[Rfam]
Description: Rfam assigns this 105-nucleotide RNA from Sediminibacterium sp. Gen4 to the family "TPP riboswitch aptamer (THI element)". Vitamin B(1) in its active form thiamin pyrophosphate (TPP) is an essential coenzyme that is synthesised by coupling of pyrimidine and thiazole moieties in bacteria. Pairs were carried over by alignment from the consensus structure, which is taken from published work. The organism belongs to Sediminibacterium, within Bacteria.
RNA sequence: GAUCAUUCCUCGGGGUGCUUCCCCGCCUAAGGCGGAGAGGCUGAGAUAAUACCCGUUGAACCUGAACAGGGUAAUUCCUGCGAAGGGAAGGCGUACAUUUUUGGU
Numbered sequence: 001g002a003u004c005a006u007u008c009c010u011c012g013g014g015g016u017g018c019u020u021c022c023c024c025g026c027c028u029a030a031g032g033c034g035g036a037g038a039g040g041c042u043g044a045g046a047u048a049a050u051a052c053c054c055g056u057u058g059a060a061c062c063u064g065a066a067c068a069g070g071g072u073a074a075u076u077c078c079u080g081c082g083a084a085g086g087g088a089a090g091g092c093g094u095a096c097a098u099u100u101u102u103g104g105u
Base pairs, nucleotide, nucleotide: 006093008091009090010089011055012054013053014052016049017041018040019039020038021037061086062085063084067080068079069078070077